A member of the RNA family "TPP riboswitch aptamer (THI element)" from Alsobacter metallidurans, 108 nucleotides long.
Taxonomically the source falls in Alsobacter (Bacteria, Pseudomonadota, Hyphomicrobiales, Alsobacteraceae).
A search with the family's covariance model found it, with a score of 65 bits.
Rfam links the family to the GO term thiamine pyrophosphate binding.
RNA sequence: CAUCUCUCGUCGGGGUGCCGUUCAAUCCAGGGCGGCUGAGAGGCAUCGCGCCAACCCGUCGAACCUGAUCCGGCUCGCACCGGCGGAGGGAACGUGAGAUGGCGCCCA
Numbered sequence: 001c002a003u004c005u006c007u008c009g010u011c012g013g014g015g016u017g018c019c020g021u022u023c024a025a026u027c028c029a030g031g032g033c034g035g036c037u038g039a040g041a042g043g044c045a046u047c048g049c050g051c052c053a054a055c056c057c058g059u060c061g062a063a064c065c066u067g068a069u070c071c072g073g074c075u076c077g078c079a080c081c082g083g084c085g086g087a088g089g090g091a092a093c094g095u096g097a098g099a100u101g102g103c104g105c106c107c108a
Stems, first nucleotide, its partner, number of pairs: 006096001008094003011058004017036007043051002064089003070083004